[Rfam]
RNA sequence: UAUUAGGUAGGUGCAAAAGUCACUGCGGUUUUUGCCAUUACUUUCGAUGGCAAAAACCGCAGUGACUUUUGCACCUACCUAAUA
Numbered sequence: 001u002a003u004u005a006g007g008u009a010g011g012u013g014c015a016a017a018a019g020u021c022a023c024u025g026c027g028g029u030u031u032u033u034g035c036c037a038u039u040a041c042u043u044u045c046g047a048u049g050g051c052a053a054a055a056a057c058c059g060c061a062g063u064g065a066c067u068u069u070u071g072c073a074c075c076u077a078c079c080u081a082a083u084a
Stems, first nucleotide, its partner, number of pairs: 001084039
A member of the RNA family "mir-548 microRNA precursor family" from Rhinopithecus roxellana, 84 nucleotides long.